This 63-nucleotide RNA from Streptomyces sp. NRRL WC-3605 belongs to the Rfam family "Actino-pnp RNA".
[Rfam]
RNA sequence: GCCGGUCCUCGGUAGUGGCCCCCGGGGGGAAGCGAUCCCCGGGUGCUUCGAUCGAAGACCGGC
Numbered sequence: 001g002c003c004g005g006u007c008c009u010c011g012g013u014a015g016u017g018g019c020c021c022c023c024g025g026g027g028g029g030a031a032g033c034g035a036u037c038c039c040c041g042g043g044u045g046c047u048u049c050g051a052u053c054g055a056a057g058a059c060c061g062g063c
Base pairs, nucleotide, nucleotide: 001063002062003061004060005059006058007057009055010054011053012052013051017047018046019045021043022042023041024040025039026038027037028036
The family's consensus secondary structure is taken from published work.